[Rfam]
RNA sequence: GCAGACUCACUCUGUUCUUUGCUGUCUCUCCAGUCCAGAACUUUUUCUGUCUGCUACAUUAACGGUCAGAGUGUAUCAACUACUGGCUUUUUCUGAAAAGCUGGUUCUGAUAUGUUCUGCAACACAUGU
Dot-bracket structure: ((((((.......(((((...(((......)))...))))).......))))))............((((((((((((...((((((((((....))))))))))..))))))))))))..........
RNA: Small nucleolar RNA SNORA77
Organism: Merluccius polli